[Rfam]
Nucleotides: 247
Stems, first nucleotide, its partner, number of pairs: 007226004016076004089104006119155005183218005189212003193206004229245005
Number, partner (000 for none) and nucleotide at each position: 001000g002000g003000u004000u005000c006000c007226g008225g009224u010223g011000c012000c013000g014000u015000c016076g017075g018074c019073g020000c021000c022000c023000u024000a025000c026000c027000a028000a029000g030000a031000c032000a033000a034000g035000a036000a037000a038000c039000g040000g041000g042000g043000g044000a045000a046000a047000u048000g049000a050000c051000c052000c053000c054000u055000a056000c057000c058000a059000a060000g061000c062000c063000c064000c065000a066000c067000c068000c069000c070000u071000c072000c073019c074018g075017c076016c077000c078000g079000a080000g081000g082000c083000g084000c085000u086000u087000c088000g089104u090103c091102a092101c093100u094099c095000g096000g097000g098000c099094g100093g101092g102091u103090g104089a105000a106000c107000a108000u109000c110000a111000c112000c113000g114000g115000u116000u117000g118000a119155g120154c121153u122152g123151g124000a125000u126000u127000u128000c129000g130000g131000g132000g133000c134000c135000c136000u137000c138000a139000a140000c141000u142000c143000c144000c145000c146000u147000a148000c149000u150000c151123u152122c153121a154120g155119c156000g157000c158000a159000a160000a161000c162000a163000a164000a165000c166000a167000c168000a169000u170000c171000u172000g173000a174000a175000a176000a177000g178000g179000c180000a181000u182000c183218g184217g185216c186215c187214c188000c189212c190211g191210c192000u193206g194205g195204g196203a197000c198000u199000g200000g201000c202000a203196u204195c205194c206193c207000g208000g209000u210191g211190c212189g213000a214187g215186g216185g217184c218183c219000u220000a221000a222000c223010c224009a225008c226007c227000a228000a229245g230244g231243a232242a233241g234000a235000a236000g237000a238000g239000a240000g241233c242232u243231u244230c245229c246000c247000g
A member of the RNA family "Streptomyces sRNA 4677" from Streptomyces coelicolor, 247 nucleotides long. It is annotated as a small RNA. Located in the intergenic region between anti-sigma factor SCO4677 gene and a putative regulatory protein gene SCO4676. scr4677 expression requires the SCO4677 activity and scr4677 sRNA itself seem to affect the levels of the SCO4676-associated transcripts. The literature on the family includes a 2014 paper in PLoS One by Hindra et al., "Complex intra-operonic dynamics mediated by a small RNA in Streptomyces coelicolor". The organism belongs to Streptomyces, within Bacteria.